Shown here is a 62-nucleotide RNA sequence from Mandrillus leucophaeus, a member of the family "U7 small nuclear RNA". Rfam's curators write: Animal histone pre-mRNAs are spliced by a different mechanism than nuclear pre-mRNAs and self-splicing introns. This processing involves the U7 snRNP, which contains only one RNA species: U7. The 5' end of U7 RNA is thought to base-pair to a conserved spacer element downstream of the cleavage site in histone pre-mRNA. This family contains a number of annotated U7 pseudogenes. On this family, see Mowry and Steitz, Science 1987: "Identification of the human U7 snRNP as one of several factors involved in the 3' end maturation of histone premessenger RNA's".
RNA sequence: AAGUAUUACAACUCUUUUAGAAUUUGUCUAGCAGGCUUUCCAGUUUUUGCAGGAAAGCAACC
Numbered sequence: 001a002a003g004u005a006u007u008a009c010a011a012c013u014c015u016u017u018u019a020g021a022a023u024u025u026g027u028c029u030a031g032c033a034g035g036c037u038u039u040c041c042a043g044u045u046u047u048u049g050c051a052g053g054a055a056a057g058c059a060a061c062c
Base pairs, nucleotide, nucleotide: 035058036057037056038055039054040053041052043050044049
It scores 59 bits against the family's covariance model. Pairs were carried over by alignment from the consensus structure, which was predicted with PFOLD.